[Rfam]
Nucleotides: 098
Base pairs, nucleotide, nucleotide: 011084012083013082014081015080016079018077019076021074023072024071025070026069027068028067029066030065031064032063033062035060036059037058038057039056040055041054042053
Number, partner (000 for none) and nucleotide at each position: 001000g002000u003000g004000a005000g006000a007000g008000g009000a010000c011084c012083c013082g014081g015080c016079g017000g018077u019076g020000c021074c022000c023072c024071c025070a026069c027068c028067c029066g030065g031064u032063a033062g034000c035060c036059c037058u038057g039056g040055c041054g042053c043000a044000c045000c046000u047000u048000c049000c050000c051000c052000g053042g054041u055040g056039c057038c058037a059036g060035g061000u062033c063032u064031g065030c066029c067028g068027g069026g070025u071024g072023g073000a074021g075000g076019c077018a078000u079016c080015g081014c082013c083012g084011g085000a086000a087000u088000c089000g090000a091000g092000a093000g094000c095000c096000g097000a098000a